The record is a 60-nucleotide RNA sequence from Sphenodon punctatus, which matches "Ma3 gene ribosomal frameshift signal" in Rfam.
Gene Ontology term of the family: translational frameshifting.
For this family Rfam cites "A functional -1 ribosomal frameshift signal in the human paraneoplastic Ma3 gene" (Wills et al., J Biol Chem, 2006).
The organism belongs to Sphenodon, within Eukaryota.
Rfam 15.1 lists 565 matches to the family in 155 species.

RNA sequence: AGGAAACAGGGAAGGGGACUGGGGCAGGAGCCACCCAGGCCCCCAGGAACAAUAGGCUCU
Numbered sequence: 001a002g003g004a005a006a007c008a009g010g011g012a013a014g015g016g017g018a019c020u021g022g023g024g025c026a027g028g029a030g031c032c033a034c035c036c037a038g039g040c041c042c043c044c045a046g047g048a049a050c051a052a053u054a055g056g057c058u059c060u
Stems, first nucleotide, its partner, number of pairs: 014044004019039002022036003028059005
Dot-bracket structure: .............[[[[.[[.[[[...(((((.]]].]].]]]]..........))))).